[Rfam]
RNA: Rhodo-rpoB RNA
RNA sequence: GGCCCGGGUGAGCGGUUUGGGACAUCGUUCAAGAAUUGGGCCCCCACCAGGCGGAGUUUCCGCAGCCGUUCCCGCCGGCUGCGUG
Numbered sequence: 001g002g003c004c005c006g007g008g009u010g011a012g013c014g015g016u017u018u019g020g021g022a023c024a025u026c027g028u029u030c031a032a033g034a035a036u037u038g039g040g041c042c043c044c045c046a047c048c049a050g051g052c053g054g055a056g057u058u059u060c061c062g063c064a065g066c067c068g069u070u071c072c073c074g075c076c077g078g079c080u081g082c083g084u085g
Stems, first nucleotide, its partner, number of pairs: 001042005010030007059085001061083008